The record is a 97-nucleotide RNA from Carnegiea gigantea, which matches "Small nucleolar RNA Z103" in Rfam. The family's RNA type in Rfam is C/D-box small nucleolar RNA. On this family, see Chen et al., Nucleic Acids Res 2003: "The high diversity of snoRNAs in plants: identification and comparative study of 120 snoRNA genes from Oryza sativa". Its family is annotated with nucleolus and RNA processing in the Gene Ontology. Taxonomically the source falls in Carnegiea (Eukaryota, Streptophytina, Magnoliopsida, Caryophyllales).
RNA sequence: GUGGAACGAUUAUUUGAUUAUUUUCACAGAUGAUCGAUGCUAAUUAAACCGUGCUAAGACCCAUUUUCUGAGAAUCCAAGGCAGUCUUUUAAUCCAC
Numbered sequence: 001g002u003g004g005a006a007c008g009a010u011u012a013u014u015u016g017a018u019u020a021u022u023u024u025c026a027c028a029g030a031u032g033a034u035c036g037a038u039g040c041u042a043a044u045u046a047a048a049c050c051g052u053g054c055u056a057a058g059a060c061c062c063a064u065u066u067u068c069u070g071a072g073a074a075u076c077c078a079a080g081g082c083a084g085u086c087u088u089u090u091a092a093u094c095c096a097c
Base pairs, nucleotide, nucleotide: 001097002096003095004094005093